[Rfam]
RNA sequence: CUCCAGCAGCAGCGCAGAAGUAAGGGUGGCAAUACCAUACCUUGCCACCCUUACUUCUGCGCUGCUGCUGGAG
Number, nucleotide and partner (000 for none) at each position: 001c073002u072003c071004c000005a069006g068007c067008a066009g065010c064011a063012g062013c061014g060015c059016a000017g056018a000019a055020g054021u053022a052023a051024g050025g049026g048027u000028g000029g000030c000031a000032a000033u000034a000035c000036c000037a000038u000039a000040c000041c000042u000043u000044g000045c000046c000047a000048c026049c025050c024051u023052u022053a021054c020055u019056u017057c000058u000059g015060c014061g013062c012063u011064g010065c009066u008067g007068c006069u005070g000071g003072a002073g001
Rfam assigns this 73-nucleotide RNA from Platysternon megacephalum to the family "mir-16 microRNA precursor family". A reference for the family is Calin et al. (2002), "Frequent deletions and down-regulation of micro- RNA genes miR15 and miR16 at 13q14 in chronic lymphocytic leukemia", Proc Natl Acad Sci U S A. Pairs were carried over by alignment from the consensus structure, which was predicted with PFOLD. The family has 14 seed sequences and 4,705 matches in Rfam 15.1. It scores 40 bits against the family's covariance model. Rfam links the family to the GO terms RISC complex and miRNA-mediated post-transcriptional gene silencing.